[Rfam]
RNA: mir-503 microRNA precursor family
Organism: Marmota monax
RNA sequence: UGCCCUAGCAGCGGGAACAGUACUGCAGUGAUCCAUUGGUGCCCUGGAGUAUUGUUCCUGCUGCCAGGAUA
Numbered sequence: 001u002g003c004c005c006u007a008g009c010a011g012c013g014g015g016a017a018c019a020g021u022a023c024u025g026c027a028g029u030g031a032u033c034c035a036u037u038g039g040u041g042c043c044c045u046g047g048a049g050u051a052u053u054g055u056u057c058c059u060g061c062u063g064c065c066a067g068g069a070u071a
Stems, first nucleotide, its partner, number of pairs: 002070001004068002008064014023049002026046003033041001